Shown here is an 86-nucleotide RNA sequence from Serpentinicella alkaliphila, a member of the family "c-di-GMP-I riboswitch aptamer". The organism belongs to Serpentinicella, within Bacteria. Pairs were carried over by alignment from the consensus structure, which is taken from published work.
RNA sequence: AAAAUAUUUUGGCAAAGCUAUCGAAAGGUAGUGACGCAAAGCUAAAGGGGCUAAGGUGACAAUCACUAUGCCAGCCAGUUGCGAGG
Number, nucleotide and partner (000 for none) at each position: 001a000002a000003a000004a000005u000006a000007u000008u000009u000010u000011g000012g037013c036014a000015a000016a000017g032018c031019u030020a029021u028022c027023g000024a000025a000026a000027g022028g021029u020030a019031g018032u017033g000034a000035c000036g013037c012038a000039a000040a080041g079042c078043u077044a000045a000046a000047g076048g075049g072050g071051c070052u000053a000054a000055g000056g066057u065058g064059a063060c000061a000062a000063u059064c058065a057066c056067u000068a000069u000070g051071c050072c049073a000074g000075c048076c047077a043078g042079u041080u040081g000082c000083g000084a000085g000086g000